[Rfam]
RNA sequence: CUAACGAAAAUCGUUAGUUUAUGGGGACAUAACCCCGUAGACCUAGAACGUCUUUAAACUCGUAAAGGAGAAAAAAAAUG
Numbered sequence: 001c002u003a004a005c006g007a008a009a010a011u012c013g014u015u016a017g018u019u020u021a022u023g024g025g026g027a028c029a030u031a032a033c034c035c036c037g038u039a040g041a042c043c044u045a046g047a048a049c050g051u052c053u054u055u056a057a058a059c060u061c062g063u064a065a066a067g068g069a070g071a072a073a074a075a076a077a078a079u080g
Stems, first nucleotide, its partner, number of pairs: 001017006020039007040052003
Dot-bracket structure: ((((((.....))))))..(((((((......)))))))(((.......)))............................
The family of this 80-nucleotide RNA is "freshwater-2 RNA". It is one of the family's seed sequences. Rfam classes the family as a cis-regulatory element.